[Rfam]
RNA sequence: UUCAAAGGAUCUUCUGCUAGAGACUGUCACGUCCUGUGACAAACGCAGAAGCCAGCACAUCCUGUGCU
Numbered sequence: 001u002u003c004a005a006a007g008g009a010u011c012u013u014c015u016g017c018u019a020g021a022g023a024c025u026g027u028c029a030c031g032u033c034c035u036g037u038g039a040c041a042a043a044c045g046c047a048g049a050a051g052c053c054a055g056c057a058c059a060u061c062c063u064g065u066g067c068u
Base pairs, nucleotide, nucleotide: 011051012050013049014048015047016046017045026040027039028038029037030036054068055067056066057065058064
The family of this 68-nucleotide RNA from Metabacillus arenae is "Bacillaceae-1 RNA". The family's consensus secondary structure is taken from published work. The match comes from Rfam's covariance-model search (61 bits). The source organism's lineage runs through Bacteria, Bacillota, Caryophanales, Bacillaceae and Metabacillus. By type it is a small RNA.